[Rfam]
Annotation
A member of the RNA family "Plastid-rpl16 group II-D1 intron" from Patrinia scabiosifolia, 48 nucleotides long. The family has 538 seed sequences and 1,446 matches in Rfam 15.1.
RNA sequence: AAGAGCUUCGAGCCAAUAAAGACUGAGAAGAUUGACUCAAGAACAAAU
Numbered sequence: 001a002a003g004a005g006c007u008u009c010g011a012g013c014c015a016a017u018a019a020a021g022a023c024u025g026a027g028a029a030g031a032u033u034g035a036c037u038c039a040a041g042a043a044c045a046a047a048u
Stems, first nucleotide, its partner, number of pairs: 007041002010038003014034004

Rfam links the family to the GO term Group II intron splicing. For this family Rfam cites "Retrograde signaling in plants: A critical review focusing on the GUN pathway and beyond" (Richter et al., Plant Commun, 2023). Lineage of the source: Eukaryota > asterids > campanulids > Dipsacales > Patrinia. From the family's description: Plastid-rpl16 is a non-coding RNA (ncRNA) recognised in plastids. It was recognised in and intronic region of a ribosome rpl16 gene.